[Rfam]
RNA sequence: AAACCAUCGCAAGCUUUUUGCUGUUUUGCUUGCUGAUUGCCAACCGAAGGAGAACGGCCGCCAGGAAGGCAAAUGGUUG
Numbered sequence: 001a002a003a004c005c006a007u008c009g010c011a012a013g014c015u016u017u018u019u020g021c022u023g024u025u026u027u028g029c030u031u032g033c034u035g036a037u038u039g040c041c042a043a044c045c046g047a048a049g050g051a052g053a054a055c056g057g058c059c060g061c062c063a064g065g066a067a068g069g070c071a072a073a074u075g076g077u078u079g
Base pairs, nucleotide, nucleotide: 002078003077004076005075006074009033010032011031012030038071039070040069041068044065045064

A member of the RNA family "CyVA-1 RNA" from Geitlerinema sp. PCC 7407, 79 nucleotides long. Taxonomically the source falls in Geitlerinema (Bacteria, Bacillati, Cyanobacteriota, Geitlerinemataceae). Rfam describes the family as follows. Cyanobacteria, Acidobacteria (1 example), Verrucomicrobia (1 example).